Shown here is an 83-nucleotide RNA from Achromobacter xylosoxidans, a member of the family "Pseudomonas sRNA P9". The sequence is in the family's curated seed alignment. Rfam classes the family as a non-coding RNA gene. Taxonomically the source falls in Achromobacter xylosoxidans (Bacteria, Burkholderiales, Alcaligenaceae, Achromobacter).
[Rfam]
RNA sequence: CUGAUUAUUACCAUCAUUCCUGGAAUGGUGGGUUAGCGCGCGACCGCAACAGUCACAGCCACCCGCCCCAAGAGGCGGGUUUU
Numbered sequence: 001c002u003g004a005u006u007a008u009u010a011c012c013a014u015c016a017u018u019c020c021u022g023g024a025a026u027g028g029u030g031g032g033u034u035a036g037c038g039c040g041c042g043a044c045c046g047c048a049a050c051a052g053u054c055a056c057a058g059c060c061a062c063c064c065g066c067c068c069c070a071a072g073a074g075g076c077g078g079g080u081u082u083u
Base pairs, nucleotide, nucleotide: 011031012030013029014028015027016026017025061080062079063078064077065076066075067074